[Rfam]
A member of the RNA family "U4atac minor spliceosomal RNA" from Drosophila melanogaster, 124 nucleotides long.
RNA sequence: ACCUUCCUUGUCUUGGGGAGCAGAAAUGUUCAAUGAACGUCUAGUGAGGACAUUGCUGCUGACACCAAUGAUGACACCCCCGCUCGCCGAUCGUUCGCGAUUGGAGUUCGGAAUUUUUGGACCA
Numbered sequence: 001a002c003c004u005u006c007c008u009u010g011u012c013u014u015g016g017g018g019a020g021c022a023g024a025a026a027u028g029u030u031c032a033a034u035g036a037a038c039g040u041c042u043a044g045u046g047a048g049g050a051c052a053u054u055g056c057u058g059c060u061g062a063c064a065c066c067a068a069u070g071a072u073g074a075c076a077c078c079c080c081c082g083c084u085c086g087c088c089g090a091u092c093g094u095u096c097g098c099g100a101u102u103g104g105a106g107u108u109c110g111g112a113a114u115u116u117u118u119g120g121a122c123c124a
Stems, first nucleotide, its partner, number of pairs: 005019005020059004025054007037045002080111003087104006
Description
Its family is annotated with U4atac snRNP, spliceosomal tri-snRNP complex assembly and mRNA 5'-splice site recognition in the Gene Ontology. A reference for the family is Davila Lopez et al. (2008), "Computational screen for spliceosomal RNA genes aids in defining the phylogenetic distribution of major and minor spliceosomal components", Nucleic Acids Res. The family's RNA type in Rfam is spliceosomal small nuclear RNA. The base pairs follow the family's consensus structure, which is taken from published work. Rfam's curators write: U4atac is an essential component of the minor U12-type spliceosome complex which is required for removal of the rarer class of eukaryotic introns (AT-AC, U12-type).